mir-302 microRNA precursor family: a 68-nucleotide RNA sequence from Urocolius indicus. A reference for the family is Mineno et al. (2006), "The expression profile of microRNAs in mouse embryos", Nucleic Acids Res. Clan: mir-290 clan. The family's consensus secondary structure was predicted with RNAalifold. Its family is annotated with miRNA-mediated post-transcriptional gene silencing and RISC complex in the Gene Ontology.

[Rfam]
RNA sequence: CCACAACUUAAACGUGGAUGUACUUGCUUUGAUCUCGAAUAGUAAGUGCUUCCAUGUUUUAGUGUUGG
Numbered sequence: 001c002c003a004c005a006a007c008u009u010a011a012a013c014g015u016g017g018a019u020g021u022a023c024u025u026g027c028u029u030u031g032a033u034c035u036c037g038a039a040u041a042g043u044a045a046g047u048g049c050u051u052c053c054a055u056g057u058u059u060u061a062g063u064g065u066u067g068g
Stems, first nucleotide, its partner, number of pairs: 001068003006063003010059009020049009